The record is a 67-nucleotide RNA from Marinobacter profundi, which matches "L31-Gammaproteobacteria ribosomal protein leader" in Rfam. The source organism's lineage runs through Bacteria, Pseudomonadati, Gammaproteobacteria, Pseudomonadales and Marinobacter. Clan: Ribosomal Protein L31 Leader clan. It is annotated as a cis-regulatory leader. The match comes from Rfam's covariance-model search (38 bits).
[Rfam]
RNA sequence: CAUGCGGUGCCUGACACCUGGAACCUCCGGGUUUCCGUGAUCGGGUAGCGGCAUGACCUACAGAGGU
Numbered sequence: 001c002a003u004g005c006g007g008u009g010c011c012u013g014a015c016a017c018c019u020g021g022a023a024c025c026u027c028c029g030g031g032u033u034u035c036c037g038u039g040a041u042c043g044g045g046u047a048g049c050g051g052c053a054u055g056a057c058c059u060a061c062a063g064a065g066g067u
Stems, first nucleotide, its partner, number of pairs: 001055005007049002011044004015039003